Rfam assigns this 242-nucleotide RNA from Hydrocoleum sp. CS-953 to the family "HNH endonuclease-associated RNA and ORF (HEARO) RNA". A reference for the family is Weinberg et al. (2009), "Exceptional structured noncoding RNAs revealed by bacterial metagenome analysis", Nature. Pairs were carried over by alignment from the consensus structure, which is taken from published work. The organism belongs to Hydrocoleum, within Bacteria.

[Rfam]
RNA sequence: GUCAGCACCCCGCUCUAAAGAGACGGGGCUUUCGGCUAAGAGCCGACAUGAAACGUGCCUCCUCUUUAGGUAGCUGACCAGCCUAAGUCUUAACUGACUACGUUGCAUUUAAGAGUCAAAGUUCUCACCUUGGAAUGCUUUACCAGUUCCAAGCUCUGAAACCAAAUAGUUAAAAGUUUACGAGGGGUAAAGCGGUGCUAUUUGGAUCUGCCGGGAUGCAACAUUGGCGAGGUAAACAUUAC
Numbered sequence: 001g002u003c004a005g006c007a008c009c010c011c012g013c014u015c016u017a018a019a020g021a022g023a024c025g026g027g028g029c030u031u032u033c034g035g036c037u038a039a040g041a042g043c044c045g046a047c048a049u050g051a052a053a054c055g056u057g058c059c060u061c062c063u064c065u066u067u068a069g070g071u072a073g074c075u076g077a078c079c080a081g082c083c084u085a086a087g088u089c090u091u092a093a094c095u096g097a098c099u100a101c102g103u104u105g106c107a108u109u110u111a112a113g114a115g116u117c118a119a120a121g122u123u124c125u126c127a128c129c130u131u132g133g134a135a136u137g138c139u140u141u142a143c144c145a146g147u148u149c150c151a152a153g154c155u156c157u158g159a160a161a162c163c164a165a166a167u168a169g170u171u172a173a174a175a176g177u178u179u180a181c182g183a184g185g186g187g188u189a190a191a192g193c194g195g196u197g198c199u200a201u202u203u204g205g206a207u208c209u210g211c212c213g214g215g216a217u218g219c220a221a222c223a224u225u226g227g228c229g230a231g232g233u234a235a236a237c238a239u240u241a242c
Base pairs, nucleotide, nucleotide: 001078002077003076004075005074006073007071009028010027011025012024014021015020029040030039031038081228082227083226085224086099087098088097089096102222103221104220105219106218107217108216109215110214125159126158129153130152131151132150133149134148135147136146139236140235141234142233143232144231162205163204164203165202166201167200168199169198170197174196176193177192178191179190180188181187